[Rfam]
The family of this 78-nucleotide RNA sequence from Eragrostis curvula is "Small nucleolar RNA U54". Rfam describes the family as follows. U54 is a C/D box small nucleolar RNA, which acts as a methylation guide for 18S ribosomal RNA in plants. A reference for the family is Chen et al. (2003), "The high diversity of snoRNAs in plants: identification and comparative study of 120 snoRNA genes from Oryza sativa", Nucleic Acids Res. It is annotated as a C/D-box small nucleolar RNA. Pairs were carried over by alignment from the consensus structure, which was predicted with PFOLD. Its Rfam clan is "U54 clan".

Nucleotides: 078
Base pairs, nucleotide, nucleotide: 001078002077003076004075005074
Number, partner (000 for none) and nucleotide at each position: 001078a002077g003076c004075u005074c006000a007000a008000u009000g010000a011000u012000u013000u014000c015000a016000a017000c018000c019000a020000g021000u022000u023000a024000u025000c026000u027000g028000g029000u030000a031000u032000a033000u034000a035000c036000g037000c038000u039000a040000u041000u042000c043000c044000g045000a046000a047000u048000c049000c050000a051000g052000c053000u054000g055000u056000u057000g058000a059000a060000a061000a062000u063000a064000a065000g066000a067000u068000u069000u070000c071000u072000g073000a074005g075004a076003g077002c078001u